[Rfam]
RNA: mir-105 microRNA precursor family
Organism: Peromyscus maniculatus
RNA sequence: UGUGCAUUGUGGUCAAUGCUCAGACUCCUGUGGUGGUUGUUUAUGUACUGUGGAUGUUUGAACAUGUGCUAUUGUAUCUA
Numbered sequence: 001u002g003u004g005c006a007u008u009g010u011g012g013u014c015a016a017u018g019c020u021c022a023g024a025c026u027c028c029u030g031u032g033g034u035g036g037u038u039g040u041u042u043a044u045g046u047a048c049u050g051u052g053g054a055u056g057u058u059u060g061a062a063c064a065u066g067u068g069c070u071a072u073u074g075u076a077u078c079u080a
Stems, first nucleotide, its partner, number of pairs: 004077001006075002009072004014068002016065003020061006026054003033051004038047003